[Rfam]
RNA sequence: UGAUAUAGCAUCCCGAAGUCAUGCAGUCACGUGCUUGCACGUGUGACUGCAUGACCUCGGGAUGCGAACAAUACAUGAGGAAAAAAGACAUGCGAACAAAGUGAGCAUGGCGAUUUCCGAAUGUAUUGUAGGAUUGCGAAAGCACGAAGUGCGGAGCAAUCCGUAUAUCA
Numbered sequence: 001u002g003a004u005a006u007a008g009c010a011u012c013c014c015g016a017a018g019u020c021a022u023g024c025a026g027u028c029a030c031g032u033g034c035u036u037g038c039a040c041g042u043g044u045g046a047c048u049g050c051a052u053g054a055c056c057u058c059g060g061g062a063u064g065c066g067a068a069c070a071a072u073a074c075a076u077g078a079g080g081a082a083a084a085a086a087g088a089c090a091u092g093c094g095a096a097c098a099a100a101g102u103g104a105g106c107a108u109g110g111c112g113a114u115u116u117c118c119g120a121a122u123g124u125a126u127u128g129u130a131g132g133a134u135u136g137c138g139a140a141a142g143c144a145c146g147a148a149g150u151g152c153g154g155a156g157c158a159a160u161c162c163g164u165a166u167a168u169c170a
Base pairs, nucleotide, nucleotide: 001170002169003168004167005166006165007164008065009064010063011062014059015058016057018055019054020053021052022051023050024049025048026047027046028045029042030041031040032039033038069128070127071126072125073124074123075122076121079118080117081116082115087111089109090108091107092106093105131162132161133160134159135158136157137156142152143151144150145149

Shown here is a 170-nucleotide RNA sequence from Butyrivibrio sp. INlla14, a member of the family "Clostridiales-1 RNA". Lineage of the source: Bacteria > Bacillota > Lachnospirales > Lachnospiraceae > Butyrivibrio. The match comes from Rfam's covariance-model search (118 bits). By type it is a small RNA.